The record is a 40-nucleotide RNA from Oceanobacillus sp. J11TS1, which matches "Ribosomal protein L19 leader" in Rfam. A reference for the family is Zengel and Lindahl (1994), "Diverse mechanisms for regulating ribosomal protein synthesis in Escherichia coli", Prog Nucleic Acid Res Mol Biol. From the family's description: This family is a putative r-protein leader autoregulatory structure found in B. subtilis and other low-GC Gram-positive bacteria. It is located in the 5' untranslated regions of mRNAs encoding ribosomal protein L19 (rplS). Rfam classes the family as a cis-regulatory leader. The source organism's lineage runs through Bacteria, Bacillati, Bacilli, Bacillaceae and Oceanobacillus.
RNA sequence: ACGAUGUUCCGCUGUUCACAUAUAAGGGCAUGAGCAUUAG
Numbered sequence: 001a002c003g004a005u006g007u008u009c010c011g012c013u014g015u016u017c018a019c020a021u022a023u024a025a026g027g028g029c030a031u032g033a034g035c036a037u038u039a040g
Base pairs, nucleotide, nucleotide: 003038004037005036006035007034008033009032013030014029016028017027
Gene Ontology term of the family: regulation of gene expression.